[Rfam]
RNA sequence: UGUAACGGGGCAUGGCUUAACUAAGGGGACUAUGGCAUGUAUAGGCGCAAAGCGGGGUUACGGUACGCGACUUAGGAGUCCCCUUAGG
Numbered sequence: 001u002g003u004a005a006c007g008g009g010g011c012a013u014g015g016c017u018u019a020a021c022u023a024a025g026g027g028g029a030c031u032a033u034g035g036c037a038u039g040u041a042u043a044g045g046c047g048c049a050a051a052g053c054g055g056g057g058u059u060a061c062g063g064u065a066c067g068c069g070a071c072u073u074a075g076g077a078g079u080c081c082c083c084u085u086a087g088g
Stems, first nucleotide, its partner, number of pairs: 001012003023085009042074003046069002052064002